Rfam assigns this 182-nucleotide sequence from Nocardioides cavernae to the family "Actinobacteria sRNA Ms_IGR-5". The pairing is the family consensus, mapped onto this sequence. It scores 96 bits against the family's covariance model.

[Rfam]
RNA sequence: ACACAGAAGGGAGGUGAUCCGAAGAAUGAGUUCUUUUCGGAUGAGUGAGGUGGCUGCCCGCUAGGCAGCCCGGUCCGCCGACAGCUGCCGGCGAAUCCACUGCAGCCACCCGACCCGCAGGCUCCCGGAGUUCAUCCGCCGGGGCCCCUCUCCGAGGGGCAGCAGCCUGCGGGUCGCUGCAU
Numbered sequence: 001a002c003a004c005a006g007a008a009g010g011g012a013g014g015u016g017a018u019c020c021g022a023a024g025a026a027u028g029a030g031u032u033c034u035u036u037u038c039g040g041a042u043g044a045g046u047g048a049g050g051u052g053g054c055u056g057c058c059c060g061c062u063a064g065g066c067a068g069c070c071c072g073g074u075c076c077g078c079c080g081a082c083a084g085c086u087g088c089c090g091g092c093g094a095a096u097c098c099a100c101u102g103c104a105g106c107c108a109c110c111c112g113a114c115c116c117g118c119a120g121g122c123u124c125c126c127g128g129a130g131u132u133c134a135u136c137c138g139c140c141g142g143g144g145c146c147c148c149u150c151u152c153c154g155a156g157g158g159g160c161a162g163c164a165g166c167c168u169g170c171g172g173g174u175c176g177c178u179g180c181a182u
Stems, first nucleotide, its partner, number of pairs: 013058004018053001059093004064089003068085002071080003111176013

NCBI's taxonomy places the organism under Bacteria, Actinomycetota, Propionibacteriales, Nocardioidaceae, Nocardioides.